Rfam assigns this 91-nucleotide RNA sequence from Nitrospirillum viridazoti to the family "Group II catalytic intron D1-D4-1". The pairing is the family consensus, mapped onto this sequence. The match comes from Rfam's covariance-model search (40 bits). Its family is annotated with Group II intron splicing in the Gene Ontology. Lineage of the source: Bacteria > Pseudomonadati > Rhodospirillales > Nitrospirillum > Nitrospirillum viridazoti.

RNA sequence: CGCCUUGCGCCUGAAAGGGCGACGGUGUUGAGCCGGAGCGGGAAGUCAGCCGAGGUCGUAGUAGGGAUCGGGGCAGCCGAGACUGAAGGAC
Numbered sequence: 001c002g003c004c005u006u007g008c009g010c011c012u013g014a015a016a017g018g019g020c021g022a023c024g025g026u027g028u029u030g031a032g033c034c035g036g037a038g039c040g041g042g043a044a045g046u047c048a049g050c051c052g053a054g055g056u057c058g059u060a061g062u063a064g065g066g067a068u069c070g071g072g073g074c075a076g077c078c079g080a081g082a083c084u085g086a087a088g089g090a091c
Stems, first nucleotide, its partner, number of pairs: 001030002005024001008021005046053002055091003064084002068080002
Dot-bracket structure: ((..(..(((((....)))))..)....))...............((....)).(((......((..((.........))..))....)))